[Rfam]
RNA sequence: UCCCAAAGAGAUUCUUUCUCCAGGGUACAAAGCAUAUACUCUAGGAAUGUAGUUCCUUGGGAAAACAUCUGAUAUUCUUGAGAAUAUUGUAGGUGAGCAUAUGUGCUAUUUUUGCUCUUGUAAUUAUCAGUAUAUGC
Number, nucleotide and partner (000 for none) at each position: 001u000002c061003c060004c059005a058006a057007a000008g000009a054010g053011a000012u000013u000014c000015u000016u000017u000018c000019u046020c045021c044022a000023g000024g041025g040026u000027a000028c000029a000030a000031a000032g000033c000034a000035u000036a000037u000038a000039c000040u025041c024042u000043a000044g021045g020046a019047a000048u000049g000050u000051a000052g000053u010054u009055c000056c000057u006058u005059g004060g003061g002062a000063a000064a000065a000066c000067a000068u000069c000070u129071g128072a127073u126074a125075u000076u123077c000078u000079u120080g119081a118082g000083a000084a000085u000086a000087u000088u000089g000090u108091a107092g106093g000094u000095g000096a000097g000098c000099a000100u000101a000102u000103g000104u000105g000106c092107u091108a090109u000110u000111u000112u000113u000114g000115c000116u000117c000118u081119u080120g079121u000122a000123a076124u000125u074126a073127u072128c071129a070130g000131u000132a000133u000134a000135u000136g000137c000
RNA: Small nucleolar RNA SNORA67